A member of the RNA family "Small nucleolar RNA Z161/Z228" from Handroanthus impetiginosus, 101 nucleotides long. The family's consensus secondary structure was predicted with PFOLD. The family has 11 seed sequences and 630 matches in Rfam 15.1.
RNA sequence: AAACCACAGGAUGAAUUUGGAUUAAAAAAUCUCACGACGGUCGUCUGAGGCACGAUCAGUGUCUUCUCUGAUGUACUGAAUCCAAUACUUCUGAUGGAAUU
Numbered sequence: 001a002a003a004c005c006a007c008a009g010g011a012u013g014a015a016u017u018u019g020g021a022u023u024a025a026a027a028a029a030u031c032u033c034a035c036g037a038c039g040g041u042c043g044u045c046u047g048a049g050g051c052a053c054g055a056u057c058a059g060u061g062u063c064u065u066c067u068c069u070g071a072u073g074u075a076c077u078g079a080a081u082c083c084a085a086u087a088c089u090u091c092u093g094a095u096g097g098a099a100u101u
Stems, first nucleotide, its partner, number of pairs: 001101002004096001051061003